[Rfam]
RNA sequence: CUGCGGACUUAAGUAAAUUGAGCCUUAGCAGAGAAAUCAGCUAAGUGACCGCUCUCAAACUCAGGGAAACCUAAGUUCGCACCGCGAAUAAGGCAAUCCUGAGCCAAGCCCAGGCAAGGAAAGAUAACCUUACCGGGGAAGGUGCAGAGACUCGACGGGAGCUGCCCUAACAGACUGCGCUGAGGGUAAAGGGAGAGUCCAAUUCUCAACGCUCGCACGAGCA
Numbered sequence: 001c002u003g004c005g006g007a008c009u010u011a012a013g014u015a016a017a018u019u020g021a022g023c024c025u026u027a028g029c030a031g032a033g034a035a036a037u038c039a040g041c042u043a044a045g046u047g048a049c050c051g052c053u054c055u056c057a058a059a060c061u062c063a064g065g066g067a068a069a070c071c072u073a074a075g076u077u078c079g080c081a082c083c084g085c086g087a088a089u090a091a092g093g094c095a096a097u098c099c100u101g102a103g104c105c106a107a108g109c110c111c112a113g114g115c116a117a118g119g120a121a122a123g124a125u126a127a128c129c130u131u132a133c134c135g136g137g138g139a140a141g142g143u144g145c146a147g148a149g150a151c152u153c154g155a156c157g158g159g160a161g162c163u164g165c166c167c168u169a170a171c172a173g174a175c176u177g178c179g180c181u182g183a184g185g186g187u188a189a190a191g192g193g194a195g196a197g198u199c200c201a202a203u204u205c206u207c208a209a210c211g212c213u214c215g216c217a218c219g220a221g222c223a
Base pairs, nucleotide, nucleotide: 005025006024008022009021010020011019012018029040031038051162052161053160054159056157061102062101063100064099065098066097070093071092072091074089103143104142109137110136111135116131117130118129147200149199150198151197152196153195165186166185167184168183170181173178